[Rfam]
RNA: Rhodo-rpoB RNA
RNA sequence: UGGUCGGAAGGGAUGCAGUGGGACGCAUUCCAAGAAUUGACCCGGAUUUUCCGCUCUUAUGGGCGCGCACCACGGCCCCGGUGGUUGAUGCG
Numbered sequence: 001u002g003g004u005c006g007g008a009a010g011g012g013a014u015g016c017a018g019u020g021g022g023a024c025g026c027a028u029u030c031c032a033a034g035a036a037u038u039g040a041c042c043c044g045g046a047u048u049u050u051c052c053g054c055u056c057u058u059a060u061g062g063g064c065g066c067g068c069a070c071c072a073c074g075g076c077c078c079c080g081g082u083g084g085u086u087g088a089u090g091c092g
Base pairs, nucleotide, nucleotide: 002042003041004040005039010031011030012029013028014027015026016025064092065091066090067089068087069085070084071083072082073081